The record is a 193-nucleotide sequence from Peterkaempfera bronchialis, which matches "c-di-AMP riboswitch aptamer (ydaO/yuaA leader)" in Rfam. From the family's description: This family represents a conserved RNA structure found upstream of the ydaO and yuaA genes in Bacillus subtilis and related genes in other bacteria. The ydaO/yuaA element is thought to act as a genetic 'off' switch for the ydaO and yuaA genes in its native state. The source organism's lineage runs through Bacteria, Actinomycetota, Kitasatosporales, Streptomycetaceae and Peterkaempfera. The match comes from Rfam's covariance-model search (40 bits).

[Rfam]
RNA sequence: GGACGCCAGGCGCGAACUCGAUUUCGGCGAGAGCGGGAGACCCGAGCACGGCGGGGUGGGAGAGCCUCCGUCGCGGCAGUGCCGCGGCAAGGGCCCAUCACCACCCCUUGGGGUGAAGCCACUUCGGUGGCCGGGCAGCUUUCGGUGCCCGAAUCCGACAGGUCAUCUUUCGCAGGCGGUUCCGGAAGGACUC
Dot-bracket structure: ...((((.........((((.......)))).((((((....((((............................................................))))(((.....((((....))))..((((..........))))...))).........))..)))).))))...............